[Rfam]
RNA: terC RNA
Organism: Rhodoplanes serenus
RNA sequence: ACAGCGAUCCGGGCCCCUCUGGCGGACCACCUGCCGCGAUGUCGGAUCUUUCAC
Numbered sequence: 001a002c003a004g005c006g007a008u009c010c011g012g013g014c015c016c017c018u019c020u021g022g023c024g025g026a027c028c029a030c031c032u033g034c035c036g037c038g039a040u041g042u043c044g045g046a047u048c049u050u051u052c053a054c
Stems, first nucleotide, its partner, number of pairs: 006048007022037004
Dot-bracket structure: .....(((((((.........((((........))))....)))))))......